[Rfam]
RNA: Nuclear RNase P
Organism: Desmophyllum pertusum
RNA sequence: GUUGGGUGAAAUGCUCGCUUAAGGGGCUACUACCGAGGAACUUGCAUUCCUGCAUAUGCCCCUGGGAAGGUCUGAGACAAAGGCCGCUGCAUAUCCUAGAUGGAUACCCUCCGAAUCAGAGGGGUGGUUCACUAGAAACAUGGCUUGACGAGUUGCACAUGGCAGGUGACUUCGCUCUGUACCAGGGUGGAGGAUGCUAGUGACUGCGUCAAAGUUGGAAAGGUUCCAUGGCCGGCGUGGUUAGUUCAAUCAGCGAGGUAGUGCCCGCAAAGGUGCUAUAACUCAAUUCAGACUACUCUUCAUCCAAC
Number, nucleotide and partner (000 for none) at each position: 001g308002u307003u306004g305005g000006g000007u000008g301009a300010a299011a000012u000013g000014c257015u256016c255017g254018c253019u252020u000021a000022a063023g062024g061025g060026g059027c000028u000029a000030c000031u000032a000033c000034c000035g000036a051037g050038g049039a048040a047041c000042u000043u000044g000045c000046a000047u040048u039049c038050c037051u036052g000053c000054a000055u000056a000057u000058g000059c026060c025061c024062c023063u022064g000065g000066g000067a000068a000069g000070g000071u000072c291073u290074g289075a288076g287077a000078c000079a000080a000081a000082g233083g232084c231085c230086g000087c000088u000089g000090c000091a000092u106093a105094u104095c103096c102097u000098a000099g000100a000101u000102g096103g095104a094105u093106a092107c123108c122109c121110u120111c119112c000113g000114a000115a000116u000117c000118a000119g111120a110121g109122g108123g107124g229125u228126g227127g226128u000129u000130c223131a000132c000133u000134a000135g000136a000137a000138a000139c000140a000141u000142g000143g000144c214145u213146u212147g000148a000149c000150g000151a000152g000153u000154u000155g000156c000157a000158c000159a000160u000161g000162g000163c000164a000165g000166g000167u000168g000169a000170c000171u000172u000173c000174g000175c000176u000177c000178u000179g000180u000181a000182c000183c000184a000185g000186g000187g000188u000189g000190g000191a000192g000193g000194a000195u000196g000197c000198u000199a000200g000201u000202g000203a000204c000205u000206g000207c000208g000209u000210c000211a000212a146213a145214g144215u000216u000217g000218g000219a000220a000221a000222g000223g130224u000225u000226c127227c126228a125229u124230g085231g084232c083233c082234g000235g000236c000237g000238u000239g000240g000241u000242u000243a000244g000245u000246u000247c000248a000249a000250u000251c000252a019253g018254c017255g016256a015257g014258g279259u278260a277261g276262u275263g274264c273265c000266c000267g000268c000269a000270a000271a000272g000273g264274u263275g262276c261277u260278a259279u258280a000281a000282c000283u000284c000285a000286a000287u076288u075289c074290a073291g072292a000293c000294u000295a000296c000297u000298c000299u010300u009301c008302a000303u000304c000305c004306a003307a002308c001